The record is a 188-nucleotide RNA from Cylicocyclus nassatus, which matches "U2 spliceosomal RNA" in Rfam. The base pairs follow the family's consensus structure, which is taken from published work. It is annotated as a spliceosomal small nuclear RNA. Its family is annotated with mRNA branch site recognition, pre-mRNA branch point binding and U2 snRNP in the Gene Ontology. The family has 208 seed sequences and 71,512 matches in Rfam 15.1. The match comes from Rfam's covariance-model search (137 bits).
RNA sequence: AUCGCUUCUCGGCCUUUUGGCUAAGAUCAAAGUUUAGUUUCUGUUCUUAUCGAAUUAACCUUCGAUAGAGUCUCGAAUGAGUCUCGUUAAGGUUAUUUGAUUUUUGGAACCGGAUGAGGUUGCGGUUUCUCGAACCUCAUCACGGGUCGGCCCUGCGUUGAACUGUCGCAGGGAUCGGCCCACACCCC
Numbered sequence: 001a002u003c004g005c006u007u008c009u010c011g012g013c014c015u016u017u018u019g020g021c022u023a024a025g026a027u028c029a030a031a032g033u034u035u036a037g038u039u040u041c042u043g044u045u046c047u048u049a050u051c052g053a054a055u056u057a058a059c060c061u062u063c064g065a066u067a068g069a070g071u072c073u074c075g076a077a078u079g080a081g082u083c084u085c086g087u088u089a090a091g092g093u094u095a096u097u098u099g100a101u102u103u104u105u106g107g108a109a110c111c112g113g114a115u116g117a118g119g120u121u122g123c124g125g126u127u128u129c130u131c132g133a134a135c136c137u138c139a140u141c142a143c144g145g146g147u148c149g150g151c152c153c154u155g156c157g158u159u160g161a162a163c164u165g166u167c168g169c170a171g172g173g174a175u176c177g178g179c180c181c182a183c184a185c186c187c188c
Stems, first nucleotide, its partner, number of pairs: 007026003011022004048067006069084002072081003113141008121132002124129001144181006151173006